[Rfam]
RNA sequence: CCGUCGUUGACGAAGUGCUUGCGGGCGUCUUCGUCAAAUACCGAAUACAUCACCCCACCGGCUUUGGCCAGCGCGUUGCCGGCGUGCGGCCAGAUGAUGACGAUGGAUUCGUCGGUGAAACGGCGGCCGUGUUGAUCUACCCACAGAUAAGGCUGACGAGCGGCGGCCAGCAACUGAGAGUUAGGCGCAUAGUCCGGCAGGCCGGGGCGGUAGGACUGUACGACGCCCAUGCCUUCCUCUUUGGCCCCGGCUUUCCACGCCAUUUUGAUGCCGUCGCCGUCUUUACCGACGUUGCCCACCAUGAUGGUGUCCGGCACCGCCACGUAUUUUUGCAGC
Dot-bracket structure: .((((...))))........((((.....((((......(.........)....((.((..(..(((.(((((((..((((..((...(((.(((((...........))))))))...))..)))))))))))..)))....(((......)))..)...)).))........)))).....((.((((.((.((((((.((.........)).)))).))..))..))).).))...(.(((..........))).)...........)))).(..((..(..(.(((...(((.........)))))).)..)..))..).............
Numbered sequence: 001c002c003g004u005c006g007u008u009g010a011c012g013a014a015g016u017g018c019u020u021g022c023g024g025g026c027g028u029c030u031u032c033g034u035c036a037a038a039u040a041c042c043g044a045a046u047a048c049a050u051c052a053c054c055c056c057a058c059c060g061g062c063u064u065u066g067g068c069c070a071g072c073g074c075g076u077u078g079c080c081g082g083c084g085u086g087c088g089g090c091c092a093g094a095u096g097a098u099g100a101c102g103a104u105g106g107a108u109u110c111g112u113c114g115g116u117g118a119a120a121c122g123g124c125g126g127c128c129g130u131g132u133u134g135a136u137c138u139a140c141c142c143a144c145a146g147a148u149a150a151g152g153c154u155g156a157c158g159a160g161c162g163g164c165g166g167c168c169a170g171c172a173a174c175u176g177a178g179a180g181u182u183a184g185g186c187g188c189a190u191a192g193u194c195c196g197g198c199a200g201g202c203c204g205g206g207g208c209g210g211u212a213g214g215a216c217u218g219u220a221c222g223a224c225g226c227c228c229a230u231g232c233c234u235u236c237c238u239c240u241u242u243g244g245c246c247c248c249g250g251c252u253u254u255c256c257a258c259g260c261c262a263u264u265u266u267g268a269u270g271c272c273g274u275c276g277c278c279g280u281c282u283u284u285a286c287c288g289a290c291g292u293u294g295c296c297c298a299c300c301a302u303g304a305u306g307g308u309g310u311c312c313g314g315c316a317c318c319g320c321c322a323c324g325u326a327u328u329u330u331u332g333c334a335g336c
Stems, first nucleotide, its partner, number of pairs: 002012004021274004030178004040050001055166002058163002062158001065139003069134007078127004084121002089116003093113005144155003184236002187233001188231003192226002195222002197219004202214002240259001242257003276323001279320002283316001286313001288311003294308003
A member of the RNA family "Soft rot Enterobacteriaceae Rev 44 asRNA" from Dickeya dadantii, 336 nucleotides long. From the family's description: From bacteria cultured under starvation conditions. Antisense to ECA0910. The organism belongs to Dickeya dadantii, within Bacteria. The family's consensus secondary structure was predicted with RNAfold.